Annotation:
The family of this 111-nucleotide sequence is "Glycine riboswitch aptamer". The base pairs follow the family's consensus structure.
RNA sequence: CUACAGAAACCAGGAGAGAGGUGUUUAUUAUACAUACACAAGAGGGAGGAAUAUUAGCACUAGCUUCCACUGGUAGCCCUAAAGCUCUCAUAAAAGGACAGGUUUUGCAGU
Numbered sequence: 001c002u003a004c005a006g007a008a009a010c011c012a013g014g015a016g017a018g019a020g021g022u023g024u025u026u027a028u029u030a031u032a033c034a035u036a037c038a039c040a041a042g043a044g045g046g047a048g049g050a051a052u053a054u055u056a057g058c059a060c061u062a063g064c065u066u067c068c069a070c071u072g073g074u075a076g077c078c079c080u081a082a083a084g085c086u087c088u089c090a091u092a093a094a095a096g097g098a099c100a101g102g103u104u105u106u107g108c109a110g111u
Stems, first nucleotide, its partner, number of pairs: 006106006013099001021035003038091001042089002046087003052081002
Description
A search with the family's covariance model found it, with a score of 34 bits. Rfam's curators write: This family represents the bacterial glycine riboswitch.